The family of this 246-nucleotide sequence from Exophiala dermatitidis is "Small nucleolar RNA snR191". For this family Rfam cites "A snoRNA that guides the two most conserved pseudouridine modifications within rRNA confers a growth advantage in yeast" (Badis et al., RNA, 2003). Rfam classes the family as an H/ACA-box small nucleolar RNA.
[Rfam]
RNA sequence: UUCCAUCGCUAAGUCAAGGCGCCUUUCUGCCUCGUUGCAAUUUUUCUCCAUGAAAGUGUGCCUGUUACAGCUUUGGUACAUCAAGCAGCGCUCGCCGCCAUCUGGCGGUCUUCGACCUGGCAUCCGUCUUGGAAGCCUUGUCAUUAGAGCGCAUGGCGUGUUUCGUUUGAGUUGAGGUCUGCUUGGAGCGGGAAUUUCUCGGUCCUUCAACUCAUGGCAUACCUCUUAGUAAUGUCUCACACAUAC
Numbered sequence: 001u002u003c004c005a006u007c008g009c010u011a012a013g014u015c016a017a018g019g020c021g022c023c024u025u026u027c028u029g030c031c032u033c034g035u036u037g038c039a040a041u042u043u044u045u046c047u048c049c050a051u052g053a054a055a056g057u058g059u060g061c062c063u064g065u066u067a068c069a070g071c072u073u074u075g076g077u078a079c080a081u082c083a084a085g086c087a088g089c090g091c092u093c094g095c096c097g098c099c100a101u102c103u104g105g106c107g108g109u110c111u112u113c114g115a116c117c118u119g120g121c122a123u124c125c126g127u128c129u130u131g132g133a134a135g136c137c138u139u140g141u142c143a144u145u146a147g148a149g150c151g152c153a154u155g156g157c158g159u160g161u162u163u164c165g166u167u168u169g170a171g172u173u174g175a176g177g178u179c180u181g182c183u184u185g186g187a188g189c190g191g192g193a194a195u196u197u198c199u200c201g202g203u204c205c206u207u208c209a210a211c212u213c214a215u216g217g218c219a220u221a222c223c224u225c226u227u228a229g230u231a232a233u234g235u236c237u238c239a240c241a242c243a244u245a246c
Stems, first nucleotide, its partner, number of pairs: 003076003017063006023056004028039003088152006096107004115141002120136002123133004158240003164234003174225004180219004186204002189201004